Small nucleolar RNA Z188: a 117-nucleotide sequence from Oryza punctata. Lineage of the source: Eukaryota > Embryophyta > commelinids > Poaceae > Oryza.
[Rfam]
RNA sequence: UUGUGCUGGUGAUGAUUGAAGAGCAAGCAAUGGUGAAUUCGAUGAAUUUGUUCACAUGUCGUUGGGGGUGCACGACUGUGGUCAUAUGCAUUCUUAAGCGGUUCAUUUGAGGCAUAC
Numbered sequence: 001u002u003g004u005g006c007u008g009g010u011g012a013u014g015a016u017u018g019a020a021g022a023g024c025a026a027g028c029a030a031u032g033g034u035g036a037a038u039u040c041g042a043u044g045a046a047u048u049u050g051u052u053c054a055c056a057u058g059u060c061g062u063u064g065g066g067g068g069u070g071c072a073c074g075a076c077u078g079u080g081g082u083c084a085u086a087u088g089c090a091u092u093c094u095u096a097a098g099c100g101g102u103u104c105a106u107u108u109g110a111g112g113c114a115u116a117c
Base pairs, nucleotide, nucleotide: 002116003115004114005113006112007111